c-di-AMP riboswitch aptamer (ydaO/yuaA leader): a 138-nucleotide RNA from Paenibacillus sp. J2TS4. This family represents a conserved RNA structure found upstream of the ydaO and yuaA genes in Bacillus subtilis and related genes in other bacteria. A search with the family's covariance model found it, with a score of 69 bits.
RNA sequence: UGCAACAAAAUGCCUAAUUCCCUCUGCAAUGGGAAACGGGGGAACCACAUUGGGUGAAUUGAUUCCAUUCAUUAAGAAUCAUAGGGGACCUUCAACCGAACCCUCAAGCUAACCUCGUAGGCAUAAAGUGGAAGGGGA
Numbered sequence: 001u002g003c004a005a006c007a008a009a010a011u012g013c014c015u016a017a018u019u020c021c022c023u024c025u026g027c028a029a030u031g032g033g034a035a036a037c038g039g040g041g042g043a044a045c046c047a048c049a050u051u052g053g054g055u056g057a058a059u060u061g062a063u064u065c066c067a068u069u070c071a072u073u074a075a076g077a078a079u080c081a082u083a084g085g086g087g088a089c090c091u092u093c094a095a096c097c098g099a100a101c102c103c104u105c106a107a108g109c110u111a112a113c114c115u116c117g118u119a120g121g122c123a124u125a126a127a128g129u130g131g132a133a134g135g136g137g138a
Base pairs, nucleotide, nucleotide: 011123012122013121014120018035019034020033021032022031036118037117038116039115040114041113052103053102054101060081061080062079063078064077065076084097085096